[Rfam]
RNA sequence: CGAGCCGGCCGGAUGGCCGCGGCACGGGGACCAGCGCGGCAUGCGCCCGGCCCGGCGCCGAGGAAAGUCCGGACUCCGCAGGGCGCGGUGGUUGCCAACGGCAACCCGGGGCGACCCGCGGGACAGUGCCACAGAAAGGAAACCGCCCGGGCGGCGGCGGGGGAGACCCCGCCGCGCGGACCCGGGUAAGGGUGAAAGGGUGCGGUAAGAGCGCACCAGCGCCGCGGGUGACCGCGGCGGCUCGGUAAACCCCACCGGGAGCAAGGCGAGAGGGUGCACCGCGGCGGUCGCCGGGGUGCGCCUGCCCGGACGUUCGAGGGCGGCCCGCCCGAGUCCGGGGGUCAGCCGCUUGAGGCGCCCAGCGAUGGUGCGCCCAGAUGGAUGGCCAUCACCCGCCGCGGCCGAAAGGCGCGGCGGGGACAGAAUCCGGCUUAGAGGCCGGCUCGUUCA
Numbered sequence: 001c002g003a004g005c006c007g008g009c010c011g012g013a014u015g016g017c018c019g020c021g022g023c024a025c026g027g028g029g030a031c032c033a034g035c036g037c038g039g040c041a042u043g044c045g046c047c048c049g050g051c052c053c054g055g056c057g058c059c060g061a062g063g064a065a066a067g068u069c070c071g072g073a074c075u076c077c078g079c080a081g082g083g084c085g086c087g088g089u090g091g092u093u094g095c096c097a098a099c100g101g102c103a104a105c106c107c108g109g110g111g112c113g114a115c116c117c118g119c120g121g122g123a124c125a126g127u128g129c130c131a132c133a134g135a136a137a138g139g140a141a142a143c144c145g146c147c148c149g150g151g152c153g154g155c156g157g158c159g160g161g162g163g164a165g166a167c168c169c170c171g172c173c174g175c176g177c178g179g180a181c182c183c184g185g186g187u188a189a190g191g192g193u194g195a196a197a198g199g200g201u202g203c204g205g206u207a208a209g210a211g212c213g214c215a216c217c218a219g220c221g222c223c224g225c226g227g228g229u230g231a232c233c234g235c236g237g238c239g240g241c242u243c244g245g246u247a248a249a250c251c252c253c254a255c256c257g258g259g260a261g262c263a264a265g266g267c268g269a270g271a272g273g274g275u276g277c278a279c280c281g282c283g284g285c286g287g288u289c290g291c292c293g294g295g296g297u298g299c300g301c302c303u304g305c306c307c308g309g310a311c312g313u314u315c316g317a318g319g320g321c322g323g324c325c326c327g328c329c330c331g332a333g334u335c336c337g338g339g340g341g342u343c344a345g346c347c348g349c350u351u352g353a354g355g356c357g358c359c360c361a362g363c364g365a366u367g368g369u370g371c372g373c374c375c376a377g378a379u380g381g382a383u384g385g386c387c388a389u390c391a392c393c394c395g396c397c398g399c400g401g402c403c404g405a406a407a408g409g410c411g412c413g414g415c416g417g418g419g420a421c422a423g424a425a426u427c428c429g430g431c432u433u434a435g436a437g438g439c440c441g442g443c444u445c446g447u448u449c450a
Stems, first nucleotide, its partner, number of pairs: 001446010012390007020060004025055001027053002065433003069430005074261004081326004086257005091105005106120001107118004121252002126250002128246003143191002145187007199217006219241001220239008265347003306338006318330004354374005359368003
Dot-bracket structure: ((((((((((.(((((((.((((.(.((.......................)).).))))....[[[.[[[[[((((...[[[[.((((((((((.....)))))(((((....)))).)((...(((((............(((((((((.............................)))))))..)).......((((((.......)))))).(((((((((....)))))))).)..)))..)))))))))))))...(((......................................((((((......((((.]]]]))))..))))))......)))......((((((((....))).))))).........)))))))...................................]]]]]]]]...))))))))))....
RNA: Bacterial RNase P class A
Organism: Corynebacterium sphenisci